[Rfam]
mir-184 microRNA precursor family: an 85-nucleotide RNA from Menidia menidia.
On this family, see Chen et al., Genes Dev 2005: "The developmental miRNA profiles of zebrafish as determined by small RNA cloning".
Pairs were carried over by alignment from the consensus structure, which was predicted with PFOLD.
The organism belongs to Menidia, within Eukaryota.
RNA sequence: UCAAGCACAUCUCCUUAUCACUUUUCCAGCCCAGCUAUCUUUCAAAUACUUGUUGGACGGAGAACUGAUAAGGGUAUGUGCCUGG
Numbered sequence: 001u002c003a004a005g006c007a008c009a010u011c012u013c014c015u016u017a018u019c020a021c022u023u024u025u026c027c028a029g030c031c032c033a034g035c036u037a038u039c040u041u042u043c044a045a046a047u048a049c050u051u052g053u054u055g056g057a058c059g060g061a062g063a064a065c066u067g068a069u070a071a072g073g074g075u076a077u078g079u080g081c082c083u084g085g
Stems, first nucleotide, its partner, number of pairs: 012074009022064006030056002